Background
The record is a 172-nucleotide RNA sequence from Desemzia incerta, which matches "Lysine riboswitch aptamer" in Rfam.
RNA sequence: UAUUUUGAUAGAGGUCGCGAGGUUCAUUAAUCCUGCUGAGUGAGGCAACACUGUGAAGCAGAGCUAGGGGACAUCGCCGAAACAAAAUGAUUCUUGCUUGAACAUUUUGUUGGGUUGCAAAUGAACAAUUUGUAAACUGUCUCAGCUAUUGCUGAGUUGCGCUAUGCUUGUA
Numbered sequence: 001u002a003u004u005u006u007g008a009u010a011g012a013g014g015u016c017g018c019g020a021g022g023u024u025c026a027u028u029a030a031u032c033c034u035g036c037u038g039a040g041u042g043a044g045g046c047a048a049c050a051c052u053g054u055g056a057a058g059c060a061g062a063g064c065u066a067g068g069g070g071a072c073a074u075c076g077c078c079g080a081a082a083c084a085a086a087a088u089g090a091u092u093c094u095u096g097c098u099u100g101a102a103c104a105u106u107u108u109g110u111u112g113g114g115u116u117g118c119a120a121a122u123g124a125a126c127a128a129u130u131u132g133u134a135a136a137c138u139g140u141c142u143c144a145g146c147u148a149u150u151g152c153u154g155a156g157u158u159g160c161g162c163u164a165u166g167c168u169u170g171u172a
Stems, first nucleotide, its partner, number of pairs: 008165004017077004022072004033061005081111009091101002112138002115135008141156006
The match comes from Rfam's covariance-model search (90 bits).